RNA: mir-466 microRNA precursor family
Organism: Mus musculus
RNA sequence: UAUAUGUGUUGAUGUGUGUGUACAUGUACAUGUGUGAAUAUGAUAUACAAAUACAUACACGCACACAUAAGACACAUAUG
Numbered sequence: 001u002a003u004a005u006g007u008g009u010u011g012a013u014g015u016g017u018g019u020g021u022a023c024a025u026g027u028a029c030a031u032g033u034g035u036g037a038a039u040a041u042g043a044u045a046u047a048c049a050a051a052u053a054c055a056u057a058c059a060c061g062c063a064c065a066c067a068u069a070a071g072a073c074a075c076a077u078a079u080g
Stems, first nucleotide, its partner, number of pairs: 002079009012068010024056005031051001033049004